[Rfam]
RNA sequence: AAGGCGGAAACUGAAAAGCCUUUAAUAGAGUAGAAU
Numbered sequence: 001a002a003g004g005c006g007g008a009a010a011c012u013g014a015a016a017a018g019c020c021u022u023u024a025a026u027a028g029a030g031u032a033g034a035a036u
Base pairs, nucleotide, nucleotide: 002021003020004019005018012033
Rfam assigns this 36-nucleotide sequence to the family "DUF805b RNA". Pairs were carried over by alignment from the consensus structure, which is taken from published work. Clan: DUF805 clan. It is one of the family's seed sequences. By type it is a cis-regulatory element.